[Rfam]
RNA sequence: GCUUAUUCUCAGGGCAGGGUGCAAUUCCCUACCGGCGGUGAUUCCGGCAUGUUCCGGAAAGCCCGCGAGCGUUCCGUCUCCGGCGAUGGUCAAAGGAGACGGAAGUCAGCAGAUCUGGUGCGAUUCCAGAGCCGACGGUAUAGUCCGGAUGAAAGAGGAUAAGA
Numbered sequence: 001g002c003u004u005a006u007u008c009u010c011a012g013g014g015c016a017g018g019g020u021g022c023a024a025u026u027c028c029c030u031a032c033c034g035g036c037g038g039u040g041a042u043u044c045c046g047g048c049a050u051g052u053u054c055c056g057g058a059a060a061g062c063c064c065g066c067g068a069g070c071g072u073u074c075c076g077u078c079u080c081c082g083g084c085g086a087u088g089g090u091c092a093a094a095g096g097a098g099a100c101g102g103a104a105g106u107c108a109g110c111a112g113a114u115c116u117g118g119u120g121c122g123a124u125u126c127c128a129g130a131g132c133c134g135a136c137g138g139u140a141u142a143g144u145c146c147g148g149a150u151g152a153a154a155g156a157g158g159a160u161a162a163g164a
Stems, first nucleotide, its partner, number of pairs: 003162008017029003031144002033134002035066004061132002069110002114130005136147003
RNA: FMN riboswitch aptamer (RFN element)